[Rfam]
This 304-nucleotide sequence from Micractinium conductrix belongs to the Rfam family "Group I catalytic intron". NCBI's taxonomy places the organism under Eukaryota, Viridiplantae, core chlorophytes, Chlorellaceae, Micractinium. It scores 90 bits against the family's covariance model. About the family: Group I catalytic introns are large self-splicing ribozymes. They catalyse their own excision from mRNA, tRNA and rRNA precursors in a wide range of organisms. The core secondary structure consists of 9 paired regions (P1-P9). Rfam 15.1 lists 5,602 matches to the family in 1,395 species.

RNA sequence: CUCUAGGGAUGAGUUAUGUUGUCCCGCUUCGCGGUGACGCGAAGGCAAUAAACUGGGUGAAUUGCAAGGACAGCUAAGGUUUGGUUGAAUCAAAUCAAAUUAUGCCAAUUUGCAGCGAAGCUCGUACAAGACAUAUUUGAGAAACUGUCCAUUUUGGCUCAUUUUUCAAAAAUUGCACGAGAACGUUCAACGACUAGAGGGUGCGGUUGUGUUAACCAAUAAUCUCUCCACGAGUGCCCAGCAACUUUUUAAUUAUCAUGCAAAAAAGUUGAUGACAUAGUCUGACCUCCUGGGAAACCUGGAG
Number, nucleotide and partner (000 for none) at each position: 001c000002u000003c000004u000005a000006g025007g024008g023009a022010u021011g020012a019013g000014u000015u000016a000017u000018g000019u012020u011021g010022u009023c008024c007025c006026g000027c000028u000029u000030c041031g040032c039033g000034g000035u000036g000037a000038c000039g032040c031041g030042a000043a000044g000045g000046c000047a000048a000049u000050a000051a000052a000053c241054u240055g239056g238057g000058u236059g235060a000061a000062u000063u114064g113065c112066a111067a110068g109069g000070a000071c000072a000073g105074c104075u000076a000077a101078g000079g000080u000081u000082u000083g000084g000085u000086u000087g000088a000089a000090u000091c000092a000093a000094a000095u000096c000097a000098a000099a000100u000101u077102a000103u000104g074105c073106c000107a000108a000109u068110u067111u066112g065113c064114a063115g186116c185117g000118a000119a000120g000121c000122u000123c000124g000125u000126a000127c000128a000129a000130g000131a000132c000133a000134u000135a000136u000137u000138u000139g000140a000141g000142a000143a000144a000145c000146u000147g000148u000149c000150c000151a000152u000153u000154u000155u000156g000157g000158c000159u000160c000161a000162u000163u000164u000165u000166u000167c000168a000169a000170a000171a000172a000173u000174u000175g000176c000177a000178c000179g000180a000181g000182a000183a000184c000185g116186u115187u000188c000189a000190a283191c000192g282193a281194c280195u279196a278197g000198a000199g000200g000201g000202u000203g000204c000205g000206g000207u000208u000209g000210u000211g000212u000213u000214a000215a000216c000217c000218a000219a000220u000221a000222a000223u000224c000225u000226c000227u000228c000229c000230a000231c000232g000233a000234g000235u059236g058237c000238c056239c055240a054241g053242c000243a000244a269245c268246u267247u266248u265249u264250u263251a000252a000253u000254u000255a000256u000257c000258a000259u000260g000261c000262a000263a250264a249265a248266a247267a246268g245269u244270u000271g000272a000273u000274g000275a000276c000277a000278u196279a195280g194281u193282c192283u190284g000285a000286c000287c000288u000289c302290c301291u000292g299293g298294g000295a000296a000297a000298c293299c292300u000301g290302g289303a000304g000